A member of the RNA family "Group II catalytic intron D1-D4-1" from Providencia heimbachae, 85 nucleotides long. NCBI's taxonomy places the organism under Bacteria, Gammaproteobacteria, Morganellaceae, Providencia, Providencia heimbachae. The pairing is the family consensus, mapped onto this sequence. Its family is annotated with Group II intron splicing in the Gene Ontology. The family has 237 seed sequences and 2,508 matches in Rfam 15.1.
[Rfam]
RNA sequence: CUACUGGCGCUGUGAAGUGUCGGAAUGGGGCAACAGAAGUCAGCAGAGGCCGUAGUAGUGAUGUAAAACCGACAUCAUGAAGGGC
Dot-bracket structure: (..((((((((....))))))))...)............((....)).(((......((((((.........))))))....)))